[Rfam]
RNA sequence: GUAAUUGGAUCUCCAAUUUUUUGGAAUACUCCAAUUUG
Numbered sequence: 001g002u003a004a005u006u007g008g009a010u011c012u013c014c015a016a017u018u019u020u021u022u023g024g025a026a027u028a029c030u031c032c033a034a035u036u037u038g
Stems, first nucleotide, its partner, number of pairs: 003018006021034005